[Rfam]
This 128-nucleotide RNA from Maritalea myrionectae belongs to the Rfam family "Ruegeria cis8 sRNA". The family has 2 seed sequences and 138 matches in Rfam 15.1. Taxonomically the source falls in Maritalea (Bacteria, Pseudomonadati, Pseudomonadota, Devosiaceae).
RNA sequence: AUCGCCAAAAUCUUGGCGAUGUAUGGGAUCAGCGGCAAGUUCAGCACCAGCAAGAUGAUAUUGCCAAUCCACAUGGACACAAUCACUGACCAGAACACAUCCGGCUGGUCGAUAUAGAGUCGUGGGCC
Numbered sequence: 001a002u003c004g005c006c007a008a009a010a011u012c013u014u015g016g017c018g019a020u021g022u023a024u025g026g027g028a029u030c031a032g033c034g035g036c037a038a039g040u041u042c043a044g045c046a047c048c049a050g051c052a053a054g055a056u057g058a059u060a061u062u063g064c065c066a067a068u069c070c071a072c073a074u075g076g077a078c079a080c081a082a083u084c085a086c087u088g089a090c091c092a093g094a095a096c097a098c099a100u101c102c103g104g105c106u107g108g109u110c111g112a113u114a115u116a117g118a119g120u121c122g123u124g125g126g127c128c
Stems, first nucleotide, its partner, number of pairs: 003018006026128002029125003033122004039113002043109001045107002048104001050102001052100001054098001056097002061093003067087001073083002
A search with the family's covariance model found it, with a score of 84 bits. The family's RNA type in Rfam is small RNA. Pairs were carried over by alignment from the consensus structure, which was predicted with RNAfold.